[Rfam]
RNA sequence: GUCUGAAAAAGGCAAACCCCGCGAAAGCGGGGGACGCAAAGUCAUCGGUCUAAAGGGUUCAUACCCCAUGACGGCAGGACUGCCAGG
Numbered sequence: 001g002u003c004u005g006a007a008a009a010a011g012g013c014a015a016a017c018c019c020c021g022c023g024a025a026a027g028c029g030g031g032g033g034a035c036g037c038a039a040a041g042u043c044a045u046c047g048g049u050c051u052a053a054a055g056g057g058u059u060c061a062u063a064c065c066c067c068a069u070g071a072c073g074g075c076a077g078g079a080c081u082g083c084c085a086g087g
Base pairs, nucleotide, nucleotide: 012037013036017032018031019030020029021028022027040081041080042079043078045077047075048072049071050070055066056065057064058063